L19-Flavobacteria ribosomal protein leader: a 28-nucleotide sequence. For this family Rfam cites "Discovery of 20 novel ribosomal leader candidates in bacteria and archaea" (Eckert and Weinberg, BMC Microbiol, 2020). The family's consensus secondary structure is taken from published work.
RNA sequence: CAACCUCUGGCGAAACUCGUGCAUGUUG
Numbered sequence: 001c002a003a004c005c006u007c008u009g010g011c012g013a014a015a016c017u018c019g020u021g022c023a024u025g026u027u028g
Stems, first nucleotide, its partner, number of pairs: 001028004008023001010020004